[Rfam]
RNA sequence: AGGUCGAUGAUAAGAACUUAUAUUGUCUUUAAGACAGAUGAUGACCUAAAAAUCAUAUGCAAUAAAAUCAUACUGAGGCUC
Numbered sequence: 001a002g003g004u005c006g007a008u009g010a011u012a013a014g015a016a017c018u019u020a021u022a023u024u025g026u027c028u029u030u031a032a033g034a035c036a037g038a039u040g041a042u043g044a045c046c047u048a049a050a051a052a053u054c055a056u057a058u059g060c061a062a063u064a065a066a067a068u069c070a071u072a073c074u075g076a077g078g079c080u081c
Base pairs, nucleotide, nucleotide: 002080003079004078005075006074008072009071
Overview
The record is an 81-nucleotide sequence from Panthera leo, which matches "Small nucleolar RNA SNORD115" in Rfam. Rfam 15.1 lists 3,387 matches to the family in 131 species. Taxonomically the source falls in Panthera (Eukaryota, Metazoa, Deuterostomia, Dipnotetrapodomorpha). The family's RNA type in Rfam is C/D-box small nucleolar RNA. Its family is annotated with RNA processing and nucleolus in the Gene Ontology.